[Rfam]
RNA sequence: GGCCUAAAGCGUCCGUAGCCGGCCGAACGGGUCCGUCGGGAAAUCCCCCCGCUUAACGGGUGGGCGUCCGGCGGAAACCAGUCGGCUUGGGGCCGGGAGACCAGAGGGGUACGUCCGGGGUAGGAGUGAAAUCCUGUAAUCCUGGACGGACCACCGGUUGCGAAAGCGCCUCUGGAGAACGGACCCGACGGUGAGGGACGAAAGCUAGGGUCUCGAACCGGAUUAGAUACCCGGGUAGUCCUAGCCGUAAACGAUGCUCGCUAGGUGUGACGCAGGCUACGAGCCUGCGUUGCGCCGUAGGGAAGCCGAGAAGCGAGCCGCCUGGGAAGUACGUCCGCAAGGAUGAAACUUAAAGGAAU
Numbered sequence: 001g002g003c004c005u006a007a008a009g010c011g012u013c014c015g016u017a018g019c020c021g022g023c024c025g026a027a028c029g030g031g032u033c034c035g036u037c038g039g040g041a042a043a044u045c046c047c048c049c050c051g052c053u054u055a056a057c058g059g060g061u062g063g064g065c066g067u068c069c070g071g072c073g074g075a076a077a078c079c080a081g082u083c084g085g086c087u088u089g090g091g092g093c094c095g096g097g098a099g100a101c102c103a104g105a106g107g108g109g110u111a112c113g114u115c116c117g118g119g120g121u122a123g124g125a126g127u128g129a130a131a132u133c134c135u136g137u138a139a140u141c142c143u144g145g146a147c148g149g150a151c152c153a154c155c156g157g158u159u160g161c162g163a164a165a166g167c168g169c170c171u172c173u174g175g176a177g178a179a180c181g182g183a184c185c186c187g188a189c190g191g192u193g194a195g196g197g198a199c200g201a202a203a204g205c206u207a208g209g210g211u212c213u214c215g216a217a218c219c220g221g222a223u224u225a226g227a228u229a230c231c232c233g234g235g236u237a238g239u240c241c242u243a244g245c246c247g248u249a250a251a252c253g254a255u256g257c258u259c260g261c262u263a264g265g266u267g268u269g270a271c272g273c274a275g276g277c278u279a280c281g282a283g284c285c286u287g288c289g290u291u292g293c294g295c296c297g298u299a300g301g302g303a304a305g306c307c308g309a310g311a312a313g314c315g316a317g318c319c320g321c322c323u324g325g326g327a328a329g330u331a332c333g334u335c336c337g338c339a340a341g342g343a344u345g346a347a348a349c350u351u352a353a354a355g356g357a358a359u
Stems, first nucleotide, its partner, number of pairs: 001322003009319001011199004016193001018192003022086005030079002032075009045063002048060004090186003093182003101175007108152002112148008123134003160167002204245006214238001218234004256318006264296014300307002324351003333344004
The family of this 359-nucleotide part of an RNA from Halococcus hamelinensis is "Archaeal small subunit ribosomal RNA". The family has 86 seed sequences and 709 matches in Rfam 15.1. For this family Rfam cites "Crystal structure of the ribosome at 5.5 A resolution" (Yusupov et al., Science, 2001). It scores 1568 bits against the family's covariance model.